[Rfam]
RNA sequence: AUCCUAGUGCAAGGGCUUUACGCAUCGCAGUGAGGAGAUAAUCCGAGCGUGUGUUUUUGCUGAUUGAAAACUAAAUCAUGACCUGCUUCUACUGGGCUUCGUACCCGGUAGAGAAUUUUUGGAACAUACCUUCUCGAAU
Numbered sequence: 001a002u003c004c005u006a007g008u009g010c011a012a013g014g015g016c017u018u019u020a021c022g023c024a025u026c027g028c029a030g031u032g033a034g035g036a037g038a039u040a041a042u043c044c045g046a047g048c049g050u051g052u053g054u055u056u057u058u059g060c061u062g063a064u065u066g067a068a069a070a071c072u073a074a075a076u077c078a079u080g081a082c083c084u085g086c087u088u089c090u091a092c093u094g095g096g097c098u099u100c101g102u103a104c105c106c107g108g109u110a111g112a113g114a115a116u117u118u119u120u121g122g123a124a125c126a127u128a129c130c131u132u133c134u135c136g137a138a139u
Stems, first nucleotide, its partner, number of pairs: 020054005026049003034044003087113010

Shown here is a 139-nucleotide RNA sequence from Cadophora sp. DSE1049, a member of the family "U4 spliceosomal RNA". Rfam's curators write: U4 small nuclear RNA (U4 snRNA) is a component of the major U2-dependent spliceosome. Pairs were carried over by alignment from the consensus structure, which is taken from published work. The family's RNA type in Rfam is spliceosomal small nuclear RNA. Rfam 15.1 lists 32,178 matches to the family in 2,547 species.